The family of this 109-nucleotide RNA sequence from Durio zibethinus is "MIR394 microRNA precursor family".

RNA sequence: CUUACAGAGUUUAUUGGCAUUCUGUCCACCUCCAAUCGUAGAAAAAGCCCUUUAUUUUCCCGUCUUAUCUUUCAUGGAGGUGGGCAUACUGCCAACUGUGCUCUGUUGG
Numbered sequence: 001c002u003u004a005c006a007g008a009g010u011u012u013a014u015u016g017g018c019a020u021u022c023u024g025u026c027c028a029c030c031u032c033c034a035a036u037c038g039u040a041g042a043a044a045a046a047g048c049c050c051u052u053u054a055u056u057u058u059c060c061c062g063u064c065u066u067a068u069c070u071u072u073c074a075u076g077g078a079g080g081u082g083g084g085c086a087u088a089c090u091g092c093c094a095a096c097u098g099u100g101c102u103c104u105g106u107u108g109g
Stems, first nucleotide, its partner, number of pairs: 014095006023086011
The organism belongs to Durio, within Eukaryota. For this family Rfam cites "Computational identification of plant microRNAs and their targets, including a stress-induced miRNA" (Jones-Rhoades and Bartel, Mol Cell, 2004). The base pairs follow the family's consensus structure, which was predicted with WAR.